[Rfam]
RNA sequence: GUUCUUUUUGCUUUUGAUUGUUGCUCAGAAAGCCGUUUAUCGACAGGCUUUCGGGCAAUAAUCAUUUCCAAAGGGAGC
Numbered sequence: 001g002u003u004c005u006u007u008u009u010g011c012u013u014u015u016g017a018u019u020g021u022u023g024c025u026c027a028g029a030a031a032g033c034c035g036u037u038u039a040u041c042g043a044c045a046g047g048c049u050u051u052c053g054g055g056c057a058a059u060a061a062u063c064a065u066u067u068c069c070a071a072a073g074g075g076a077g078c
Stems, first nucleotide, its partner, number of pairs: 001078007015064004020059007028052007
Rfam assigns this 78-nucleotide sequence from Zophobas morio to the family "mir-315 microRNA precursor family". The source organism's lineage runs through Eukaryota, Pancrustacea, Hexapoda, Neuropteroidea and Zophobas. For this family Rfam cites "The small RNA profile during Drosophila melanogaster development" (Aravin et al., Dev Cell, 2003). It scores 66 bits against the family's covariance model.